[Rfam]
RNA sequence: UGAACGGAAAGCUCGCGUUAGGGGUAAACAUACGGACAAUGGAAUUUAUUCCAUUGGUCAUUUUUUAAUAACCCUUGGGAAGGUCUGAGAAAAACUAACAAAAGUCUUUAGCUGGGACACUCAUGAGAGUGGGUCAUGAAUAACCAGAAAUAGUAUCCUCUUUGAUUCAGAAUAUGAUGUCUUUUUUGACAGAUUCGAUUGAAUUAAUAGUAGGAGUUAAACACGAUUCAUUAGUGGAAGUUCUAUGAAGUGCGAUACGUGAGACAUUACAAUUGUGAUGUAACUCAAUUCAGACUACUCUUCCGUUCG
Number, nucleotide and partner (000 for none) at each position: 001u309002g308003a307004a306005c000006g000007g303008a302009a301010a000011g000012c263013u262014c261015g260016c259017g258018u257019u000020a076021g075022g074023g073024g072025u000026a000027a000028a000029c000030a000031u000032a000033c000034g000035g059036a058037c057038a000039a055040u053041g052042g051043a050044a049045u000046u000047u000048a000049u044050u043051c042052c041053a040054u000055u039056g000057g037058u036059c035060a000061u000062u000063u000064u000065u000066u000067a000068a000069u000070a000071a000072c024073c023074c022075u021076u020077g000078g000079g000080a000081a000082g000083g000084u000085c293086u292087g291088a290089g289090a000091a000092a000093a000094a235095c234096u233097a232098a000099c000100a000101a000102a000103a000104g118105u117106c116107u115108u114109u000110a000111g000112c000113u000114g108115g107116g106117a105118c104119a134120c133121u132122c131123a130124u129125g000126a000127g000128a000129g124130u123131g122132g121133g120134u119135c000136a231137u230138g229139a228140a227141u226142a000143a000144c000145c000146a000147g000148a000149a000150a000151u000152a000153g000154u000155a000156u215157c214158c213159u000160c000161u000162u000163u000164g000165a000166u000167u000168c000169a000170g000171a000172a000173u000174a000175u000176g000177a000178u000179g000180u000181c000182u000183u000184u000185u000186u000187u000188g000189a000190c000191a000192g000193a000194u000195u000196c000197g000198a000199u000200u000201g000202a000203a000204u000205u000206a000207a000208u000209a000210g000211u000212a000213g158214g157215a156216g000217u000218u000219a000220a000221a000222c000223a000224c000225g000226a141227u140228u139229c138230a137231u136232u097233a096234g095235u094236g000237g000238a000239a000240g000241u000242u000243c000244u000245a000246u000247g000248a000249a000250g000251u000252g000253c000254g000255a000256u000257a018258c017259g016260u015261g014262a013263g012264a281265c280266a279267u278268u277269a276270c275271a000272a000273u000274u000275g270276u269277g268278a267279u266280g265281u264282a000283a000284c000285u000286c000287a000288a000289u089290u088291c087292a086293g085294a000295c000296u000297a000298c000299u000300c000301u009302u008303c007304c000305g000306u004307u003308c002309g001